[Rfam]
Nucleotides: 087
Stems, first nucleotide, its partner, number of pairs: 001087002004084003010078002014075002017072003021068002024065001025062002028060001029057001031055004038050001040049001042047001
Number, partner (000 for none) and nucleotide at each position: 001087g002086g003000g004084a005083g006082c007000a008000c009000a010078g011077g012000a013000u014075c015074c016000u017072g018071g019070g020000c021068u022067g023000u024065g025062u026061c027000c028060c029057c030000u031055g032054u033053g034052c035000c036000c037000u038050g039000g040049g041000a042047u043000c044000c045000g046000g047042g048000g049040c050038c051000u052034g053033c054032g055031c056000u057029g058000c059000u060028g061026g062025a063000a064000u065024c066000u067022c068021a069000u070019u071018c072017c073000c074015g075014g076000g077011c078010c079000g080000c081000a082006g083005c084004u085000a086002c087001u
mir-8799 microRNA precursor family: an 87-nucleotide RNA from Vulpes vulpes. The match comes from Rfam's covariance-model search (49 bits). The organism belongs to Vulpes, within Eukaryota.